RNA: tRNA
Organism: Ileibacterium valens
RNA sequence: GGCUAGGUAGCUUAGUUGGCUAGAGCAUCCGGUUCAUACCCGGAAGGUCGUGAGUUCGAGUCUCACCCUAGCCA
Number, nucleotide and partner (000 for none) at each position: 001g073002g072003c071004u070005a069006g068007g067008u000009a000010g026011c025012u024013u023014a000015g000016u000017u000018g000019g000020c000021u000022a000023g013024a012025g011026c010027a000028u044029c043030c042031g041032g040033u000034u000035c000036a000037u000038a000039c000040c032041c031042g030043g029044a028045a000046g000047g000048u000049c000050g066051u065052g064053a063054g062055u000056u000057c000058g000059a000060g000061u000062c054063u053064c052065a051066c050067c007068c006069u005070a004071g003072c002073c001074a000